[Rfam]
RNA sequence: GAUGCUGGACCUGCUGGCACCAUGGGUGCAGCUGCCCUGCUGCACCUGUGACAUUGGGGCAGAGAGGGAACGGCUAUUUCUACACUCAGUGCUCAGAACAGUGAGCACUAAGAAUGGUUUAUAGCAGGACAUUG
Numbered sequence: 001g002a003u004g005c006u007g008g009a010c011c012u013g014c015u016g017g018c019a020c021c022a023u024g025g026g027u028g029c030a031g032c033u034g035c036c037c038u039g040c041u042g043c044a045c046c047u048g049u050g051a052c053a054u055u056g057g058g059g060c061a062g063a064g065a066g067g068g069a070a071c072g073g074c075u076a077u078u079u080c081u082a083c084a085c086u087c088a089g090u091g092c093u094c095a096g097a098a099c100a101g102u103g104a105g106c107a108c109u110a111a112g113a114a115u116g117g118u119u120u121a122u123a124g125c126a127g128g129a130c131a132u133u134g
Stems, first nucleotide, its partner, number of pairs: 003061002005057004022049004073125002080117003085112002090107006
This 134-nucleotide RNA sequence from Balaenoptera musculus belongs to the Rfam family "Small nucleolar RNA SNORA43". Pairs were carried over by alignment from the consensus structure, which was predicted with RNAfold. Rfam's curators write: ACA43 is a member of the H/ACA class of snoRNA that guide the sites of modification of uridines to pseudouridines. Its Rfam clan is "SNORA17 clan". It scores 122 bits against the family's covariance model. The family's RNA type in Rfam is H/ACA-box small nucleolar RNA.